[Rfam]
Nucleotides: 077
Base pairs, nucleotide, nucleotide: 001077003075004074005073006072007071
Number, partner (000 for none) and nucleotide at each position: 001077u002000u003075c004074u005073g006072u007071u008000a009000g010000u011000g012000a013000u014000g015000a016000a017000g018000u019000u020000u021000a022000a023000a024000u025000a026000g027000a028000u029000g030000g031000g032000a033000a034000u035000c036000u037000c038000u039000c040000u041000g042000a043000g044000a045000g046000a047000g048000a049000a050000u051000g052000a053000a054000g055000c056000u057000u058000a059000a060000u061000u062000u063000c064000a065000a066000a067000c068000u069000g070000a071007a072006a073005c074004a075003g076000u077001a
This 77-nucleotide RNA sequence from Cavia porcellus belongs to the Rfam family "Small nucleolar RNA SNORD79". By type it is a C/D-box small nucleolar RNA. Pairs were carried over by alignment from the consensus structure, which was predicted with PFOLD. Rfam 15.1 lists 784 matches to the family in 651 species. On this family, see Galardi et al., Mol Cell Biol 2002: "Purified box C/D snoRNPs are able to reproduce site-specific 2'-O-methylation of target RNA in vitro". snoRNA U79 or Z22 is found in intron 7 of the gas5 gene in humans and is also present in mice. Its family is annotated with nucleolus and RNA processing in the Gene Ontology.